[Rfam]
Shown here is a 67-nucleotide RNA from Bombyx mori, a member of the family "mir-2774 microRNA precursor family". The literature on the family includes a 2010 paper in BMC Genomics by Liu et al., "MicroRNAs of Bombyx mori identified by Solexa sequencing". Taxonomically the source falls in Bombyx (Eukaryota, Heteroneura, Bombycidae, Bombycinae). The base pairs follow the family's consensus structure, which was predicted with RNAalifold.
RNA sequence: ACAACAUUCGAACCGUUGGUCUACCGAGAAAUAUCACCCGCUCGGUGGAAGAUCUUGCCUUCGUCGU
Numbered sequence: 001a002c003a004a005c006a007u008u009c010g011a012a013c014c015g016u017u018g019g020u021c022u023a024c025c026g027a028g029a030a031a032u033a034u035c036a037c038c039c040g041c042u043c044g045g046u047g048g049a050a051g052a053u054c055u056u057g058c059c060u061u062c063g064u065c066g067u
Stems, first nucleotide, its partner, number of pairs: 004064002010058001012056001015053003020049009